[Rfam]
A member of the RNA family "tRNA" from Methanosarcina sp. MTP4, 72 nucleotides long. A search with the family's covariance model found it, with a score of 58 bits. The base pairs follow the family's consensus structure, which is taken from published work. NCBI's taxonomy places the organism under Archaea, Methanomicrobia, Methanosarcinales, Methanosarcinaceae, Methanosarcina. Rfam links the family to the GO term triplet codon-amino acid adaptor activity.
RNA sequence: AGGCCUGUGGUGUAGUGGAUAUCACUGGGGCCUCCGGAGCCCCGAACCUGGGUUCGAUUCCCAGCAGGCCUG
Numbered sequence: 001a002g003g004c005c006u007g008u009g010g011u012g013u014a015g016u017g018g019a020u021a022u023c024a025c026u027g028g029g030g031c032c033u034c035c036g037g038a039g040c041c042c043c044g045a046a047c048c049u050g051g052g053u054u055c056g057a058u059u060c061c062c063a064g065c066a067g068g069c070c071u072g
Base pairs, nucleotide, nucleotide: 001071002070003069004068005067006066007065010025011024012023027043028042029041030040031039048064049063050062051061052060
Dot-bracket structure: (((((((..(((..........))).(((((.......)))))....(((((.......)))))))))))).